Shown here is a 96-nucleotide RNA, a member of the family "Glycine riboswitch aptamer". Pairs were carried over by alignment from the consensus structure. A reference for the family is Mandal et al. (2004), "A glycine-dependent riboswitch that uses cooperative binding to control gene expression", Science.

RNA sequence: UGACCCCGUGCGGGAGAGUCCCGGUGCAGGAAGCCGGGCGCCGAAGGAGCAAAUCCCUUCCCGGAAUCUCUCAGGCACACGGACCGUGCGGUCGAG
Numbered sequence: 001u002g003a004c005c006c007c008g009u010g011c012g013g014g015a016g017a018g019u020c021c022c023g024g025u026g027c028a029g030g031a032a033g034c035c036g037g038g039c040g041c042c043g044a045a046g047g048a049g050c051a052a053a054u055c056c057c058u059u060c061c062c063g064g065a066a067u068c069u070c071u072c073a074g075g076c077a078c079a080c081g082g083a084c085c086g087u088g089c090g091g092u093c094g095a096g
Stems, first nucleotide, its partner, number of pairs: 006091008020038004040076003043072002047070003